[Rfam]
RNA: L4-Archaeoglobi ribosomal protein leades
RNA sequence: CUGAAGGCCGCGUCCGGGUCACUUGCGGACUGCAACACCCGAUCUCUCUCACGGUGCCGCCGUCGAUGGCGACACCGGCCGAGGGAGAGCGCGUCACCGUCAG
Numbered sequence: 001c002u003g004a005a006g007g008c009c010g011c012g013u014c015c016g017g018g019u020c021a022c023u024u025g026c027g028g029a030c031u032g033c034a035a036c037a038c039c040c041g042a043u044c045u046c047u048c049u050c051a052c053g054g055u056g057c058c059g060c061c062g063u064c065g066a067u068g069g070c071g072a073c074a075c076c077g078g079c080c081g082a083g084g085g086a087g088a089g090c091g092c093g094u095c096a097c098c099g100u101c102a103g
Base pairs, nucleotide, nucleotide: 001103002102003101004100009093010092011091012090013089015041016040017039018038023035024034025033026032027031043088044087045086046085047084048083049082050081